[Rfam]
RNA: Mason-Pfizer monkey virus packaging signal
Organism: Cricetulus griseus
RNA sequence: UGGUGCCCAAUGUGUGUGGCCCGGGUAUGAGGGCUUCAGUGAGGAACGUCGCAGAGAAGGGAAAUCUCAAGAAAAGAGACAGAACAGAGGAAGUGGUUAGACUGGAGCCUGCCACCAUAAGGAGACCUGAGUAAGUGAGCGACAAUUAUGGGACACGACAUGAGCCAACAUGAGCUAUUUGUUGAAGUCCUCAAAAAGGCACUUAAGGCGUGAGGGGUUAGACACCAGAAUUGUUGAAAUUUUUUAUAUUUAUUAAGGAAGUUUGUUCUU
Numbered sequence: 001u002g003g004u005g006c007c008c009a010a011u012g013u014g015u016g017u018g019g020c021c022c023g024g025g026u027a028u029g030a031g032g033g034c035u036u037c038a039g040u041g042a043g044g045a046a047c048g049u050c051g052c053a054g055a056g057a058a059g060g061g062a063a064a065u066c067u068c069a070a071g072a073a074a075a076g077a078g079a080c081a082g083a084a085c086a087g088a089g090g091a092a093g094u095g096g097u098u099a100g101a102c103u104g105g106a107g108c109c110u111g112c113c114a115c116c117a118u119a120a121g122g123a124g125a126c127c128u129g130a131g132u133a134a135g136u137g138a139g140c141g142a143c144a145a146u147u148a149u150g151g152g153a154c155a156c157g158a159c160a161u162g163a164g165c166c167a168a169c170a171u172g173a174g175c176u177a178u179u180u181g182u183u184g185a186a187g188u189c190c191u192c193a194a195a196a197a198g199g200c201a202c203u204u205a206a207g208g209c210g211u212g213a214g215g216g217g218u219u220a221g222a223c224a225c226c227a228g229a230a231u232u233g234u235u236g237a238a239a240u241u242u243u244u245u246a247u248a249u250u251u252a253u254u255a256a257g258g259a260a261g262u263u264u265g266u267u268c269u270u
Stems, first nucleotide, its partner, number of pairs: 006033003012028003038049001039047002085129003097121001098119001100116001104112001135156003140152001143150002162203001164200003211246008221232002255270005